Description: small nucleolar RNA snoR31: a 136-nucleotide RNA from Plasmodium vivax. The family's consensus secondary structure was predicted with RNAalifold. Its family is annotated with nucleolus and RNA processing in the Gene Ontology. Lineage of the source: Eukaryota > Sar > Alveolata > Plasmodiidae > Plasmodium. On this family, see Chakrabarti et al., RNA 2007: "Structural RNAs of known and unknown function identified in malaria parasites by comparative genomics and RNA analysis". A search with the family's covariance model found it, with a score of 79 bits.
RNA sequence: AUCCCUAGCGGGCAGGAUCUUUUCAACAGAAUGAAAAGGAUCAUAAUCAGUCUAGGUAAUAAAAAAAAAAAAAAAAAAAAAAAAAAAACGUUGUAAUGAGUUGCCUUGCUUUUACGACGCCUUUUUUUUUUUUAAC
Numbered sequence: 001a002u003c004c005c006u007a008g009c010g011g012g013c014a015g016g017a018u019c020u021u022u023u024c025a026a027c028a029g030a031a032u033g034a035a036a037a038g039g040a041u042c043a044u045a046a047u048c049a050g051u052c053u054a055g056g057u058a059a060u061a062a063a064a065a066a067a068a069a070a071a072a073a074a075a076a077a078a079a080a081a082a083a084a085a086a087a088a089c090g091u092u093g094u095a096a097u098g099a100g101u102u103g104c105c106u107u108g109c110u111u112u113u114a115c116g117a118c119g120c121c122u123u124u125u126u127u128u129u130u131u132u133u134a135a136c
Stems, first nucleotide, its partner, number of pairs: 004056005009050001010048002016042003019038006077131010089119008